This 134-nucleotide RNA sequence from Propithecus coquereli belongs to the Rfam family "Small nucleolar RNA SNORA64/SNORA10 family". This family belongs to the H/ACA class of small nucleolar RNAs (snoRNAs) which act as guides in the the modification of uridines to pseudouridines. This family includes the human snoRNAs U64 and ACA10 and mouse MBI-29. Rfam classes the family as an H/ACA-box small nucleolar RNA. Its family is annotated with nucleolus and RNA processing in the Gene Ontology. A search with the family's covariance model found it, with a score of 93 bits. For this family Rfam cites "Nucleolar localization signals of box H/ACA small nucleolar RNAs" (Narayanan et al., EMBO J, 1999). The organism belongs to Propithecus, within Eukaryota.
[Rfam]
RNA sequence: UCUCUCUCUGCUCUGCAAAGUUACAUUCAGCUUCACAUGAGUGACUUUCAUCAUGGGGAGAGAGAGAAAAGAUCUCCUCAGGACCCCAGAUUGCCCCUACAGUGGUUUCUCUUUGCUUGAGGGGUACAACAGGU
Numbered sequence: 001u002c003u004c005u006c007u008c009u010g011c012u013c014u015g016c017a018a019a020g021u022u023a024c025a026u027u028c029a030g031c032u033u034c035a036c037a038u039g040a041g042u043g044a045c046u047u048u049c050a051u052c053a054u055g056g057g058g059a060g061a062g063a064g065a066g067a068a069a070a071g072a073u074c075u076c077c078u079c080a081g082g083a084c085c086c087c088a089g090a091u092u093g094c095c096c097c098u099a100c101a102g103u104g105g106u107u108u109c110u111c112u113u114u115g116c117u118u119g120a121g122g123g124g125u126a127c128a129a130c131a132g133g134u
Stems, first nucleotide, its partner, number of pairs: 002066007011058005019046006026039001074124005080118003088112003093107001095105002